Rfam assigns this 87-nucleotide sequence from Castanea mollissima to the family "mir-156 microRNA precursor family".
Its family is annotated with RISC complex and miRNA-mediated post-transcriptional gene silencing in the Gene Ontology.
NCBI's taxonomy places the organism under Eukaryota, Streptophyta, Tracheophyta, Spermatophyta, Castanea.
Rfam's curators write: This family represents the plant microRNA (miRNA) precursor mir-156.

RNA sequence: GUGACAGAAGAGAGUGAGCACACAAGUUGUUUUUCUUGCAUGGACUACCCACGCUAGAAUUGUGUGUGCUCACCCUCUAUCUGUCGC
Numbered sequence: 001g002u003g004a005c006a007g008a009a010g011a012g013a014g015u016g017a018g019c020a021c022a023c024a025a026g027u028u029g030u031u032u033u034u035c036u037u038g039c040a041u042g043g044a045c046u047a048c049c050c051a052c053g054c055u056a057g058a059a060u061u062g063u064g065u066g067u068g069c070u071c072a073c074c075c076u077c078u079a080u081c082u083g084u085c086g087c
Stems, first nucleotide, its partner, number of pairs: 001087008010077003014073008023064002
Dot-bracket structure: ((((((((.(((.((((((((.((......................................)).)))))))).)))..))))))))